[Rfam]
RNA sequence: GCCUCCGGUGCCUGCUGAGCUGGUAUCAGUGUGUCCACAAAGAGCUGGCUCAGCUCAGCAGGAACAGGAG
Numbered sequence: 001g002c003c004u005c006c007g008g009u010g011c012c013u014g015c016u017g018a019g020c021u022g023g024u025a026u027c028a029g030u031g032u033g034u035c036c037a038c039a040a041a042g043a044g045c046u047g048g049c050u051c052a053g054c055u056c057a058g059c060a061g062g063a064a065c066a067g068g069a070g
Stems, first nucleotide, its partner, number of pairs: 003070004008065002011062003015058009026048005